[Rfam]
RNA sequence: UGAGGUCGGGUGAUGAGUUGCAUAGUUCAGAUGAUCAACCCUCGUGGUUCUGAUUACAUUGAGUAAUUAGUCUUUCGCUCCUAUCUGACGACCUUA
Numbered sequence: 001u002g003a004g005g006u007c008g009g010g011u012g013a014u015g016a017g018u019u020g021c022a023u024a025g026u027u028c029a030g031a032u033g034a035u036c037a038a039c040c041c042u043c044g045u046g047g048u049u050c051u052g053a054u055u056a057c058a059u060u061g062a063g064u065a066a067u068u069a070g071u072c073u074u075u076c077g078c079u080c081c082u083a084u085c086u087g088a089c090g091a092c093c094u095u096a
Stems, first nucleotide, its partner, number of pairs: 004093005
Small nucleolar RNA snR60/Z15/Z230/Z193/J17: a 96-nucleotide RNA from Zea mays. Its family is annotated with nucleolus and RNA processing in the Gene Ontology. Taxonomically the source falls in Zea (Eukaryota, Streptophyta, Magnoliopsida, Poaceae). Rfam classes the family as a C/D-box small nucleolar RNA. The pairing is the family consensus, mapped onto this sequence. The literature on the family includes a 1999 paper in Science by Lowe and Eddy, "A computational screen for methylation guide snoRNAs in yeast".